mir-2060 microRNA precursor family: a 90-nucleotide RNA sequence from Branchiostoma floridae. NCBI's taxonomy places the organism under Eukaryota, Opisthokonta, Eumetazoa, Bilateria, Branchiostoma. The family has 7 seed sequences and 3,696 matches in Rfam 15.1.
RNA sequence: UUCUACCUGUUUGGAUGGCGUUUAGCACCAAGGACAGGUUGUUAACCUGUGUGUGAAUGGUGUUCAGCACCAGGGACAGAUUGUUUACCU
Dot-bracket structure: ....(.((((.....(((.(((.(((((((.(.(((((((...))))))).).....))))))).))).)))...)))).).........